Selenocysteine transfer RNA: a 90-nucleotide RNA from Pasteurella multocida.
Rfam's curators put it in the seed alignment.
Pairs were carried over by alignment from the consensus structure, which is taken from published work.
The family has 109 seed sequences and 4,211 matches in Rfam 15.1.

[Rfam]
RNA sequence: GGAGGAGCGUCGUUUCCGGUGAAGCGGCAGGACUUCAAAUCCUGUUGAGGUUGCCAGCAAUCUCGGGUGGGUUCGACUCCCAUUCUCCUC
Numbered sequence: 001g002g003a004g005g006a007g008c009g010u011c012g013u014u015u016c017c018g019g020u021g022a023a024g025c026g027g028c029a030g031g032a033c034u035u036c037a038a039a040u041c042c043u044g045u046u047g048a049g050g051u052u053g054c055c056a057g058c059a060a061u062c063u064c065g066g067g068u069g070g071g072u073u074c075g076a077c078u079c080c081c082a083u084u085c086u087c088c089u090c
Stems, first nucleotide, its partner, number of pairs: 002090006009083001011026006027045006047064005068082004